[Rfam]
The record is a 108-nucleotide RNA from Parascaris univalens, which matches "SL1 RNA" in Rfam. Rfam 15.1 lists 1,095 matches to the family in 28 species. Pairs were carried over by alignment from the consensus structure, which is taken from published work. Its Rfam clan is "SL clan". A reference for the family is Dassanayake et al. (2001), "Trans-spliced leader RNA, 5S-rRNA genes and novel variant orphan spliced-leader of the lymphatic filarial nematode Wuchereria bancrofti, and a sensitive polymerase chain reaction based detection assay", Gene.

Nucleotides: 108
Stems, first nucleotide, its partner, number of pairs: 003031002006028007034071004039065003086105007
Number, partner (000 for none) and nucleotide at each position: 001000g002000g003031u004030u005000u006028a007027a008026u009025u010024a011023c012022c013000c014000a015000a016000g017000u018000u019000u020000g021000a022012g023011g024010u025009a026008a027007u028006u029000c030004a031003a032000u033000g034071u035070u036069u037068c038000a039065g040064c041063u042000c043000a044000g045000u046000g047000c048000u049000u050000c051000u052000a053000a054000g055000c056000g057000c058000u059000c060000u061000g062000u063041g064040g065039c066000u067000u068037g069036a070035a071034a072000g073000a074000a075000a076000a077000u078000u079000u080000u081000g082000g083000a084000a085000c086105g087104c088103u089102u090101u091100g092099c093000c094000a095000u096000a097000u098000g099092g100091u101090g102089a103088a104087g105086c106000a107000c108000u
Gene Ontology term of the family: mRNA trans splicing, via spliceosome. The family's RNA type in Rfam is non-coding RNA gene.